[Rfam]
RNA sequence: UGCGACACCCAUUAAAGGAGUCGUUCUCCAUCUAGAGACUACCUUACCAUAUCCCGAAUUC
Numbered sequence: 001u002g003c004g005a006c007a008c009c010c011a012u013u014a015a016a017g018g019a020g021u022c023g024u025u026c027u028c029c030a031u032c033u034a035g036a037g038a039c040u041a042c043c044u045u046a047c048c049a050u051a052u053c054c055c056g057a058a059u060u061c
Base pairs, nucleotide, nucleotide: 017045018044020042021041023039024038025037027035